mir-27 microRNA precursor family: a 77-nucleotide sequence from Ameiurus melas. The match comes from Rfam's covariance-model search (64 bits). The family has 82 seed sequences and 1,440 matches in Rfam 15.1. NCBI's taxonomy places the organism under Eukaryota, Chordata, Otomorpha, Ictaluridae, Ameiurus.

RNA sequence: CGUGGUAGCAGGACUUACCCACAUGUGAACAGUGUACUAAACCUCCAUGUUCACAGUGGUUAAGUUCUGCCCCCCAG
Numbered sequence: 001c002g003u004g005g006u007a008g009c010a011g012g013a014c015u016u017a018c019c020c021a022c023a024u025g026u027g028a029a030c031a032g033u034g035u036a037c038u039a040a041a042c043c044u045c046c047a048u049g050u051u052c053a054c055a056g057u058g059g060u061u062a063a064g065u066u067c068u069g070c071c072c073c074c075c076a077g
Stems, first nucleotide, its partner, number of pairs: 011067007019059002025054007